Rfam assigns this 66-nucleotide RNA sequence from Mizuhopecten yessoensis to the family "mir-2 microRNA precursor family".
It scores 73 bits against the family's covariance model.
The family's consensus secondary structure was predicted with PFOLD.
Gene Ontology terms of the family: RISC complex and miRNA-mediated post-transcriptional gene silencing.
The literature on the family includes a 2001 paper in Science by Lee and Ambros, "An extensive class of small RNAs in Caenorhabditis elegans".
The source organism's lineage runs through Eukaryota, Eumetazoa, Bilateria, Pectinida and Mizuhopecten.
[Rfam]
RNA sequence: GGAGGCAUCAAAGUGGUUGUGAAAUGUUCAUCAUUAUCAUAUCACAGCCAGCUUUGAUGAGCUCGG
Numbered sequence: 001g002g003a004g005g006c007a008u009c010a011a012a013g014u015g016g017u018u019g020u021g022a023a024a025u026g027u028u029c030a031u032c033a034u035u036a037u038c039a040u041a042u043c044a045c046a047g048c049c050a051g052c053u054u055u056g057a058u059g060a061g062c063u064c065g066g
Stems, first nucleotide, its partner, number of pairs: 006059008014050009025041003